The family of this 62-nucleotide RNA sequence from Haloechinothrix halophila is "L31-Actinobacteria ribosomal protein leader". By type it is a cis-regulatory leader. The base pairs follow the family's consensus structure, which is taken from published work. Rfam's curators put it in the seed alignment.
RNA sequence: CCGGCACCGGUUCACCCCACUGGCUCACUUUGGGCCGAGCGUUGUUCGGGGACCCGGCGGCC
Number, nucleotide and partner (000 for none) at each position: 001c000002c000003g062004g061005c060006a000007c057008c056009g055010g054011u000012u000013c000014a000015c051016c050017c049018c048019a045020c000021u000022g000023g000024c000025u000026c000027a000028c000029u000030u000031u000032g000033g000034g000035c000036c000037g000038a000039g000040c000041g000042u000043u000044g000045u019046u000047c000048g018049g017050g016051g015052a000053c000054c010055c009056g008057g007058c000059g000060g005061c004062c003